Rfam assigns this 112-nucleotide RNA from Rugositalea oryzae to the family "EcpR1".
About the family: Perviously named SmelC291, SmrC10, or Sra33. According to its overproduction phenotype it was renamed Elongated Cell Phenotype RNA1. Induced by stress,EcpR1 negatively regulates cell cycle master regulatory genes dnaA and gcrA at post-transcriptional level by base pairing between its strongly conserved GC-rich loop and the target mRNAs. It's regulation is hfq-independent but requires RNase E to regulate dnaA.
A search with the family's covariance model found it, with a score of 87 bits.
Its family is annotated with regulation of translation in response to stress, mRNA binding and negative regulation of cell cycle in the Gene Ontology.
RNA sequence: CAGCCCUACGGUUUGCUCAGGUCCGCCGCAUCUCCUGAGUUCCGUGGGGUUCGGCCGGUCUGGGAGUGAUGCGAGUGGCCUCCUCAUGACAUCGCUCCCGGCCGGCCACCCU
Numbered sequence: 001c002a003g004c005c006c007u008a009c010g011g012u013u014u015g016c017u018c019a020g021g022u023c024c025g026c027c028g029c030a031u032c033u034c035c036u037g038a039g040u041u042c043c044g045u046g047g048g049g050u051u052c053g054g055c056c057g058g059u060c061u062g063g064g065a066g067u068g069a070u071g072c073g074a075g076u077g078g079c080c081u082c083c084u085c086a087u088g089a090c091a092u093c094g095c096u097c098c099c100g101g102c103c104g105g106c107c108a109c110c111c112u
Stems, first nucleotide, its partner, number of pairs: 003050008016039006053107008062098002
Taxonomically the source falls in Rugositalea (Bacteria, Alphaproteobacteria, Hyphomicrobiales, Nitrobacteraceae). The base pairs follow the family's consensus structure, which was predicted with WAR.